[Rfam]
RNA sequence: UGGCGCCCAACGUGGGGUCUGAGUAUGAGGGAUCCAGUGAAGAACACCGAUCAAAGGUAAAAAGAAGAUGAAAAAGUAGCAGCUGAAGUUAGAAGAAUUUCCAGGGAGAUGGCUAUGUGGGAAUCUGCUGCGUAGUCCAAGGCUCAGAAUUUACAGGGUGACGGCUACAUGGGAACCUGCUGUGUAGUCCAGGGCUCAAGUAAGUGAUUGGCGAUUAUGAGGCAGGAAAUAAGCCAGCAUGAGGCCUUUGUAAAUGGUCUGACAGAGACCCUAAGGGAGCAGGGAGUAAAGGUUAAGAAAAAGCAAUUAUUAGAAUUUUUUCGGUUCCUCCAUGAAGUCUGUCCUU
Number, nucleotide and partner (000 for none) at each position: 001u000002g000003g000004c000005g000006c031007c030008c029009a000010a000011c000012g026013u025014g024015g000016g000017g000018u000019c000020u000021g000022a000023g000024u014025a013026u012027g000028a000029g008030g007031g006032a000033u000034c000035c130036a129037g128038u127039g000040a000041a000042g000043a000044a000045c000046a000047c000048c000049g000050a000051u000052c000053a000054a000055a000056g000057g000058u000059a000060a000061a000062a000063a000064g000065a000066a000067g000068a000069u000070g000071a000072a000073a000074a000075a000076g000077u000078a000079g000080c000081a000082g000083c000084u000085g000086a000087a000088g000089u000090u000091a000092g000093a000094a000095g000096a000097a000098u000099u000100u000101c000102c000103a000104g000105g000106g000107a000108g000109a000110u000111g000112g000113c000114u000115a000116u000117g000118u000119g000120g000121g000122a000123a000124u000125c000126u000127g038128c037129u036130g035131c000132g000133u000134a000135g000136u000137c000138c000139a000140a000141g000142g000143c000144u000145c000146a000147g000148a000149a000150u000151u000152u000153a000154c000155a000156g000157g197158g196159u000160g000161a000162c000163g190164g188165c187166u000167a000168c184169a183170u182171g181172g180173g000174a000175a000176c000177c000178u000179g000180c172181u171182g170183u169184g168185u000186a000187g165188u164189c000190c163191a000192g000193g000194g000195c000196u158197c157198a000199a000200g000201u000202a000203a000204g000205u224206g223207a000208u000209u220210g000211g000212c219213g218214a000215u000216u000217a000218u213219g212220a209221g000222g000223c206224a205225g000226g000227a000228a000229a000230u273231a272232a000233g269234c000235c267236a000237g000238c000239a000240u000241g000242a000243g000244g000245c000246c000247u000248u000249u000250g000251u000252a000253a000254a000255u000256g000257g000258u000259c000260u000261g000262a000263c000264a000265g000266a000267g235268a000269c233270c000271c000272u231273a230274a000275g000276g000277g000278a000279g000280c000281a321282g320283g319284g318285a317286g316287u315288a000289a000290a308291g307292g000293u305294u000295a000296a000297g000298a000299a000300a000301a000302a000303g000304c000305a293306a000307u291308u290309a000310u000311u000312a000313g000314a000315a287316u286317u285318u284319u283320u282321u281322c000323g000324g000325u000326u000327c000328c000329u000330c000331c000332a345333u000334g343335a342336a000337g000338u000339c000340u000341g000342u335343c334344c000345u332346u000
Shown here is a 346-nucleotide sequence from Suricata suricatta, a member of the family "Mason-Pfizer monkey virus packaging signal". It scores 64 bits against the family's covariance model. The organism belongs to Suricata, within Eukaryota.